[Rfam]
This 79-nucleotide sequence belongs to the Rfam family "chrB-a RNA".
RNA sequence: GCCAUGGGGCGAAGCGAUCACCCCACAAGGCGAAAGCCGAAGCAUCGCGUCCUGUUUCUCCGUCAUGAGGACGCCCAUG
Dot-bracket structure: ....(((((...........))))).....................((((((................)))))).....